[Rfam]
RNA: Small nucleolar RNA snoR14
Organism: Dioscorea zingiberensis
RNA sequence: GUGAAGUGAUAAGAAAAUUCAUGUUCUUUUAAUCCACUGAUUGAAUGUGAUGUUAUUCCUGAAUCCUAACCGGUUUUAAUCAC
Numbered sequence: 001g002u003g004a005a006g007u008g009a010u011a012a013g014a015a016a017a018u019u020c021a022u023g024u025u026c027u028u029u030u031a032a033u034c035c036a037c038u039g040a041u042u043g044a045a046u047g048u049g050a051u052g053u054u055a056u057u058c059c060u061g062a063a064u065c066c067u068a069a070c071c072g073g074u075u076u077u078a079a080u081c082a083c
Base pairs, nucleotide, nucleotide: 001083002082003081004080